RNA sequence: GGAUGAAUAUGAUGAAAGUAAUAAAAGGUACUGAUGAAAUUUCUUCAUUUUAUUUAUAAUAGUCUUUGCUAUGUUCUUUCUGAUUCAUUC
Numbered sequence: 001g002g003a004u005g006a007a008u009a010u011g012a013u014g015a016a017a018g019u020a021a022u023a024a025a026a027g028g029u030a031c032u033g034a035u036g037a038a039a040u041u042u043c044u045u046c047a048u049u050u051u052a053u054u055u056a057u058a059a060u061a062g063u064c065u066u067u068g069c070u071a072u073g074u075u076c077u078u079u080c081u082g083a084u085u086c087a088u089u090c
Base pairs, nucleotide, nucleotide: 004087005086006085007084
Dot-bracket structure: ...((((............................................................................))))...
This 90-nucleotide RNA sequence from Coffea arabica belongs to the Rfam family "Small nucleolar RNA R32/R81/Z41". Taxonomically the source falls in Coffea (Eukaryota, Euphyllophyta, lamiids, Ixoroideae). On this family, see Barneche et al., J Mol Biol 2001: "Identification of 66 box C/D snoRNAs in Arabidopsis thaliana: extensive gene duplications generated multiple isoforms predicting new ribosomal RNA 2'-O-methylation sites". Rfam links the family to the GO terms nucleolus and RNA processing.